[Rfam]
RNA sequence: UAUCUGAAGCCUGACGAGGAUGAGAACCUCCGGGGGCAAGAGGUUCGACUCGAGCGAAGCGAGAGAACGUUGCGUCAGCAACGGCCCGCAGUGGCAAGGCAUCCUCUGUCACCGGCA
Numbered sequence: 001u002a003u004c005u006g007a008a009g010c011c012u013g014a015c016g017a018g019g020a021u022g023a024g025a026a027c028c029u030c031c032g033g034g035g036g037c038a039a040g041a042g043g044u045u046c047g048a049c050u051c052g053a054g055c056g057a058a059g060c061g062a063g064a065g066a067a068c069g070u071u072g073c074g075u076c077a078g079c080a081a082c083g084g085c086c087c088g089c090a091g092u093g094g095c096a097a098g099g100c101a102u103c104c105u106c107u108g109u110c111a112c113c114g115g116c117a
Stems, first nucleotide, its partner, number of pairs: 015108001016106004021101001037093002044090001046088002051061002068083006

About this RNA:
A member of the RNA family "RtT RNA" from Salmonella enterica, 117 nucleotides long. Rfam 15.1 lists 651 matches to the family in 204 species. Pairs were carried over by alignment from the consensus structure, which is taken from published work. The organism belongs to Salmonella enterica subsp. enterica serovar Choleraesuis, within Bacteria. This family represents a bacterial cis-regulatory element known as RtT RNA. The exact function of RtT is unknown although it is thought that it may be involved in changing the cellular response in relation to amino acid starvation. Rfam links the family to the GO term cellular response to amino acid starvation.